Rfam assigns this 71-nucleotide RNA from Anolis carolinensis to the family "mir-451 microRNA precursor family".
For this family Rfam cites "miR-451 enhances erythroid differentiation in K562 cells" (Bruchova-Votavova et al., Leuk Lymphoma, 2010).
The organism belongs to Anolis, within Eukaryota.
It is one of the family's seed sequences.

RNA sequence: ACCGGUGUGUUGGCGAAACCGUUACCAUUACUGAGUUUAGUAAUGGUAAGGGUUCUUCUAUCACGCCGACU
Number, nucleotide and partner (000 for none) at each position: 001a000002c000003c000004g000005g000006u000007g064008u063009g062010u000011u060012g059013g058014c000015g000016a000017a054018a053019c052020c051021g000022u049023u048024a047025c046026c045027a044028u043029u042030a041031c040032u039033g038034a000035g000036u000037u000038u033039a032040g031041u030042a029043a028044u027045g026046g025047u024048a023049a022050g000051g020052g019053u018054u017055c000056u000057u000058c013059u012060a011061u000062c009063a008064c007065g000066c000067c000068g000069a000070c000071u000